[Rfam]
RNA sequence: CGUGUGGUGUCCGGCUUUGAAUCGGAUAGCGACACGGCCUUUGAUUGAGGU
Numbered sequence: 001c002g003u004g005u006g007g008u009g010u011c012c013g014g015c016u017u018u019g020a021a022u023c024g025g026a027u028a029g030c031g032a033c034a035c036g037g038c039c040u041u042u043g044a045u046u047g048a049g050g051u
Stems, first nucleotide, its partner, number of pairs: 001036005007030002011025004015019001
A member of the RNA family "L31-Gammaproteobacteria ribosomal protein leader" from Ferrimonas senticii, 51 nucleotides long. Rfam's curators put it in the seed alignment. A reference for the family is Eckert and Weinberg (2020), "Discovery of 20 novel ribosomal leader candidates in bacteria and archaea", BMC Microbiol. The organism belongs to Ferrimonas senticii, within Bacteria. The family's RNA type in Rfam is cis-regulatory leader.